The family of this 114-nucleotide RNA sequence from Pararge aegeria is "U5 spliceosomal RNA". Pairs were carried over by alignment from the consensus structure, which is taken from published work. The organism belongs to Pararge aegeria, within Eukaryota. By type it is a spliceosomal small nuclear RNA.
RNA sequence: UAACUCUGGUUUCCCUUCAAAACGUAUAAAUCUUUCGCCUUUUACUAAAGAUUUCCGUGGAGGGGAACACUCAAAUGAGUCUUUGAAAUUUUUGUUGCCCUACGAUCGUGGGGC
Numbered sequence: 001u002a003a004c005u006c007u008g009g010u011u012u013c014c015c016u017u018c019a020a021a022a023c024g025u026a027u028a029a030a031u032c033u034u035u036c037g038c039c040u041u042u043u044a045c046u047a048a049a050g051a052u053u054u055c056c057g058u059g060g061a062g063g064g065g066a067a068c069a070c071u072c073a074a075a076u077g078a079g080u081c082u083u084u085g086a087a088a089u090u091u092u093u094g095u096u097g098c099c100c101u102a103c104g105a106u107c108g109u110g111g112g113g114c
Stems, first nucleotide, its partner, number of pairs: 003080004009068011028054008097114006